A member of the RNA family "Microsporidia small subunit ribosomal RNA" from Tubulinosema acridophagus, 350 nucleotides of a longer RNA. The family's consensus secondary structure is taken from published work. A reference for the family is Yusupov et al. (2001), "Crystal structure of the ribosome at 5.5 A resolution", Science. Rfam 15.1 lists 1,035 matches to the family in 436 species. The sequence is in the family's curated seed alignment.
RNA sequence: UAGUUAGAAAGUUUGUAGCCGUAUAAGCUUGAAUCAGAGGAAAGGAGGACUCUUAAGGUAAACUUUAACUCUGGUCAAUGCUUAUAUUCGAAGCGGAUGGAGGCACUUGUAUUCAAUAGCGAGAGGUAAAAUUUGAUGACCUAUUGAGGACAAUCAGUAGCGAAAGCGAGUGUCUAGUACGCGUUUGAGGGUCAAGAACGUUAGCCGGAGGAUCGAAGAUGAUUAGAUACCGUUGUAGUUCCGGCCGUAAACCAUGCCUACUUGCCUUGUACAUAGUAUGAAGCAUAGAGAAAUUAAGAGUUUUUGGGCUCUAGGGAUAGUAAUCCGGCAACGGACAAACUUAAAGAAAU
Numbered sequence: 001u002a003g004u005u006a007g008a009a010a011g012u013u014u015g016u017a018g019c020c021g022u023a024u025a026a027g028c029u030u031g032a033a034u035c036a037g038a039g040g041a042a043a044g045g046a047g048g049a050c051u052c053u054u055a056a057g058g059u060a061a062a063c064u065u066u067a068a069c070u071c072u073g074g075u076c077a078a079u080g081c082u083u084a085u086a087u088u089c090g091a092a093g094c095g096g097a098u099g100g101a102g103g104c105a106c107u108u109g110u111a112u113u114c115a116a117u118a119g120c121g122a123g124a125g126g127u128a129a130a131a132u133u134u135g136a137u138g139a140c141c142u143a144u145u146g147a148g149g150a151c152a153a154u155c156a157g158u159a160g161c162g163a164a165a166g167c168g169a170g171u172g173u174c175u176a177g178u179a180c181g182c183g184u185u186u187g188a189g190g191g192u193c194a195a196g197a198a199c200g201u202u203a204g205c206c207g208g209a210g211g212a213u214c215g216a217a218g219a220u221g222a223u224u225a226g227a228u229a230c231c232g233u234u235g236u237a238g239u240u241c242c243g244g245c246c247g248u249a250a251a252c253c254a255u256g257c258c259u260a261c262u263u264g265c266c267u268u269g270u271a272c273a274u275a276g277u278a279u280g281a282a283g284c285a286u287a288g289a290g291a292a293a294u295u296a297a298g299a300g301u302u303u304u305u306g307g308g309c310u311c312u313a314g315g316g317a318u319a320g321u322a323a324u325c326c327g328g329c330a331a332c333g334g335a336c337a338a339a340c341u342u343a344a345a346g347a348a349a350u
Stems, first nucleotide, its partner, number of pairs: 001313003011199004018192003090186003093182003097178002101175007108152002112148008123134003160167002204245006214238001218234004256309003260301002263285003267281006288295002315342002324335004